[Rfam]
RNA sequence: UGGGUAGUAUCUGUAAGAACUACACCGCUGAAUGCAAGUACUGCAGAUUAAUUGAAAUUUAUACUGCCUUGAUCCAUAAAACGGACUAGGACAGGGGA
Dot-bracket structure: ((((((((.((.....))))))).)))....................................((((((.(.(((.......)))).))).)))....
Numbered sequence: 001u002g003g004g005u006a007g008u009a010u011c012u013g014u015a016a017g018a019a020c021u022a023c024a025c026c027g028c029u030g031a032a033u034g035c036a037a038g039u040a041c042u043g044c045a046g047a048u049u050a051a052u053u054g055a056a057a058u059u060u061a062u063a064c065u066g067c068c069u070u071g072a073u074c075c076a077u078a079a080a081a082c083g084g085a086c087u088a089g090g091a092c093a094g095g096g097g098a
Stems, first nucleotide, its partner, number of pairs: 001027003004023005010018002064094003067090003071086001073085003